[Rfam]
mir-27 microRNA precursor family: a 79-nucleotide RNA sequence from Anas platyrhynchos. Taxonomically the source falls in Anas platyrhynchos (Eukaryota, Bilateria, Teleostomi, Anatinae). On this family, see Chen et al., Genes Dev 2005: "The developmental miRNA profiles of zebrafish as determined by small RNA cloning".
RNA sequence: UUCAGGUGCAGAGCUUAGCUGAUUGGUGAACAGUGAUUGUUUUCCUCUUUGUUCACAGUGGCUAAGUUCUGCACCUCGC
Numbered sequence: 001u002u003c004a005g006g007u008g009c010a011g012a013g014c015u016u017a018g019c020u021g022a023u024u025g026g027u028g029a030a031c032a033g034u035g036a037u038u039g040u041u042u043u044c045c046u047c048u049u050u051g052u053u054c055a056c057a058g059u060g061g062c063u064a065a066g067u068u069c070u071g072c073a074c075c076u077c078g079c
Stems, first nucleotide, its partner, number of pairs: 011069010026056007